[Rfam]
RNA sequence: UCAGAGACUCAGAGUCUCAUCUUGACAAACACUGUUGUUUUGGUGUGCUAGAGUUCUCUCAGAGUGAAGACUGUUCCUAUUCACCGACUGGCCUUCUCAAAGGCCAGUCACCCACAUGGGCAGUUACAAGU
Number, nucleotide and partner (000 for none) at each position: 001u000002c000003a059004g058005a057006g056007a054008c053009u052010c000011a000012g000013a049014g048015u000016c047017u000018c045019a044020u043021c042022u000023u000024g039025a038026c037027a036028a000029a000030c000031a000032c000033u000034g000035u000036u027037g026038u025039u024040u000041u000042g021043g020044u019045g018046u000047g016048c014049u013050a000051g000052a009053g008054u007055u000056c006057u005058c004059u003060c000061a000062g000063a000064g000065u000066g000067a000068a000069g000070a000071c123072u122073g121074u120075u119076c118077c000078u000079a000080u000081u000082c000083a000084c000085c000086g109087a108088c000089u106090g105091g104092c103093c102094u101095u000096c000097u000098c000099a000100a000101a094102g093103g092104c091105c090106a089107g000108u087109c086110a000111c000112c000113c000114a000115c000116a000117u000118g076119g075120g074121c073122a072123g071124u000125u000126a000127c000128a000129a000130g000131u000

This 131-nucleotide RNA sequence from Oncorhynchus kisutch belongs to the Rfam family "Small nucleolar RNA SNORA3/SNORA45 family".
The family's RNA type in Rfam is H/ACA-box small nucleolar RNA.
A reference for the family is Huttenhofer et al. (2001), "RNomics: an experimental approach that identifies 201 candidates for novel, small, non-messenger RNAs in mouse", EMBO J.
Clan: SNORA3 clan.
It scores 56 bits against the family's covariance model.
Rfam describes the family as follows. The members of this family belong to the H/ACA class of snoRNAs which are thought to guide the sites of modification of uridines to pseudouridines. This family includes mouse snoMBI-28 and human homologues ACA3 (SNORA3) and ACA3-2 (SNORA45). Both ACA3 and ACA3-2 share the same host gene.